RNA: Plastid-rps18 3UTR RNA
RNA sequence: UGCAAGGAUUUUACGAUUAAGAAGCAACUGCCCCUUAUACUUAUUGUGUAUUAAUCU
Numbered sequence: 001u002g003c004a005a006g007g008a009u010u011u012u013a014c015g016a017u018u019a020a021g022a023a024g025c026a027a028c029u030g031c032c033c034c035u036u037a038u039a040c041u042u043a044u045u046g047u048g049u050a051u052u053a054a055u056c057u
Stems, first nucleotide, its partner, number of pairs: 018037004024031002